[Rfam]
RNA sequence: AAAGACCAGUUAUGGAAGGAGAAGCUAGCUCAACCAUAUAGCGAAUCUUGUGCAGUUGAAGGUAACGACAGUAGUAAAGCGUAGACAGUGAAACAUUCGAACUGAAACCAAAUGGUGAACGUGAUAUCCCAGAAAGUAUGAUGUAGUGGAAGCCUAUAUGUUCUAGAACAUAGUAGGCAAAAGAAGAUUGGAGGUCAAACUAGUGAAAAUACAAAAAAUUUUCAACCACCGGGGUCGCAGGUGU
Numbered sequence: 001a002a003a004g005a006c007c008a009g010u011u012a013u014g015g016a017a018g019g020a021g022a023a024g025c026u027a028g029c030u031c032a033a034c035c036a037u038a039u040a041g042c043g044a045a046u047c048u049u050g051u052g053c054a055g056u057u058g059a060a061g062g063u064a065a066c067g068a069c070a071g072u073a074g075u076a077a078a079g080c081g082u083a084g085a086c087a088g089u090g091a092a093a094c095a096u097u098c099g100a101a102c103u104g105a106a107a108c109c110a111a112a113u114g115g116u117g118a119a120c121g122u123g124a125u126a127u128c129c130c131a132g133a134a135a136g137u138a139u140g141a142u143g144u145a146g147u148g149g150a151a152g153c154c155u156a157u158a159u160g161u162u163c164u165a166g167a168a169c170a171u172a173g174u175a176g177g178c179a180a181a182a183g184a185a186g187a188u189u190g191g192a193g194g195u196c197a198a199a200c201u202a203g204u205g206a207a208a209a210u211a212c213a214a215a216a217a218a219u220u221u222u223c224a225a226c227c228a229c230c231g232g233g234g235u236c237g238c239a240g241g242u243g244u
Stems, first nucleotide, its partner, number of pairs: 012037004019031003039091001041089002046085003049081002051076003055072004061066001123238001126235001128234003132230001146229004152178003157172004183223007
Dot-bracket structure: ...........((((...(((.......)))..)))).(.((...((((((((.((((..(....)..)))).)))...)).)))..)).)...............................(..(.(((.(.............((((..(((..((((........))))...)))....(((((((...........................)))))))..))))).))))..)......
RNA: Group II catalytic intron D1-D4-6
Organism: Orientia tsutsugamushi